Shown here is an 81-nucleotide sequence from Capsella rubella, a member of the family "Small nucleolar RNA Z221/R21b". Pairs were carried over by alignment from the consensus structure, which was predicted with WAR. A reference for the family is Chen et al. (2003), "The high diversity of snoRNAs in plants: identification and comparative study of 120 snoRNA genes from Oryza sativa", Nucleic Acids Res. Rfam links the family to the GO terms RNA processing and nucleolus. It scores 78 bits against the family's covariance model. The organism belongs to Capsella, within Eukaryota.
RNA sequence: AGGCAAUGAUGAACGAGAAUGUCAUGCACCACUCUGAUCUUAGUGCUGAUAAUUAUCUCUAACCCAUAUUAUUCUGAGCCU
Numbered sequence: 001a002g003g004c005a006a007u008g009a010u011g012a013a014c015g016a017g018a019a020u021g022u023c024a025u026g027c028a029c030c031a032c033u034c035u036g037a038u039c040u041u042a043g044u045g046c047u048g049a050u051a052a053u054u055a056u057c058u059c060u061a062a063c064c065c066a067u068a069u070u071a072u073u074c075u076g077a078g079c080c081u
Stems, first nucleotide, its partner, number of pairs: 001081004